The record is a 96-nucleotide RNA sequence from Naja naja, which matches "Small nucleolar RNA SNORD14" in Rfam.
RNA sequence: UCGCGAGGAUGAAGGUUCCAAAACCAUUCGUAGUUUCCACCAGAAGGUUUGAAAGACCUAUGUUGGCCAGAACACCUUCCUUGGAUGUCUGAGCGA
Numbered sequence: 001u002c003g004c005g006a007g008g009a010u011g012a013a014g015g016u017u018c019c020a021a022a023a024c025c026a027u028u029c030g031u032a033g034u035u036u037c038c039a040c041c042a043g044a045a046g047g048u049u050u051g052a053a054a055g056a057c058c059u060a061u062g063u064u065g066g067c068c069a070g071a072a073c074a075c076c077u078u079c080c081u082u083g084g085a086u087g088u089c090u091g092a093g094c095g096a
Base pairs, nucleotide, nucleotide: 001096002095003094004093046058047057048056049055050054
The organism belongs to Naja, within Eukaryota. Rfam describes the family as follows. U14 small nucleolar RNA (U14 snoRNA) is required for early cleavages of eukaryotic precursor rRNAs. Rfam links the family to the GO terms nucleolus and RNA processing.